[Rfam]
RNA sequence: UGUUAAAAAUUUCAUCCAUUUCUGCUGUUAUGAACUGAUCAUUGUACGUCAACAUGAGGUACACGUGGCACGCCACAUGUCACUAUUUGGUUAUUCUAAUAACCAUGUCAUUUUUUAACAAUAUAAAUAGAUGAAAUUUUUAAUA
Numbered sequence: 001u002g003u004u005a006a007a008a009a010u011u012u013c014a015u016c017c018a019u020u021u022c023u024g025c026u027g028u029u030a031u032g033a034a035c036u037g038a039u040c041a042u043u044g045u046a047c048g049u050c051a052a053c054a055u056g057a058g059g060u061a062c063a064c065g066u067g068g069c070a071c072g073c074c075a076c077a078u079g080u081c082a083c084u085a086u087u088u089g090g091u092u093a094u095u096c097u098a099a100u101a102a103c104c105a106u107g108u109c110a111u112u113u114u115u116u117a118a119c120a121a122u123a124u125a126a127a128u129a130g131a132u133g134a135a136a137u138u139u140u141u142a143a144u145a
Stems, first nucleotide, its partner, number of pairs: 002144015018128004023123002026120001028118003032114002
Dot-bracket structure: .(((((((((((((((.((((.((.(.(((.((...............................................................................)).))).).)).)))).))))))))))))))).
A member of the RNA family "MIR7502 microRNA precursor family" from Gossypium trilobum, 145 nucleotides long. The source organism's lineage runs through Eukaryota, Streptophytina, Mesangiospermae, malvids and Gossypium. The family has 6 seed sequences and 74,505 matches in Rfam 15.1.